Background: Shown here is a 130-nucleotide RNA from Panthera leo, a member of the family "Small nucleolar RNA SNORA11". A search with the family's covariance model found it, with a score of 128 bits. Rfam classes the family as an H/ACA-box small nucleolar RNA. The organism belongs to Panthera, within Eukaryota. U107 (SNORA11) is a member of the H/ACA class of snoRNAs that guide the sites of modification of uridines to pseudouridines. Its family is annotated with RNA processing and nucleolus in the Gene Ontology. The family has 35 seed sequences and 2,014 matches in Rfam 15.1.
RNA sequence: AGGGUGUGCUCAGAGCAGGGGGCCUGCAGAAAUGGCUCCGCUGUUUAUAACACACCCAACAGCAAUCUGGGUUCAUUAUGAAAAGGGGCACAAAAUGUGUGGCCUUCCUAUGAACAGAUACCCUACACGU
Numbered sequence: 001a002g003g004g005u006g007u008g009c010u011c012a013g014a015g016c017a018g019g020g021g022g023c024c025u026g027c028a029g030a031a032a033u034g035g036c037u038c039c040g041c042u043g044u045u046u047a048u049a050a051c052a053c054a055c056c057c058a059a060c061a062g063c064a065a066u067c068u069g070g071g072u073u074c075a076u077u078a079u080g081a082a083a084a085g086g087g088g089c090a091c092a093a094a095a096u097g098u099g100u101g102g103c104c105u106u107c108c109u110a111u112g113a114a115c116a117g118a119u120a121c122c123c124u125a126c127a128c129g130u
Base pairs, nucleotide, nucleotide: 002057003056004055005054006053007052008051013046014045015044016043017042018041020039021038022036023035024034070123071122073120077116079114083111085105086104087103089101090100091099092098
Dot-bracket structure: .(((((((....((((((.(((((.........))).)).))))))....)))))))............((.(...(.(...(.(((.((((.....)))).))).....)..).)...).)).......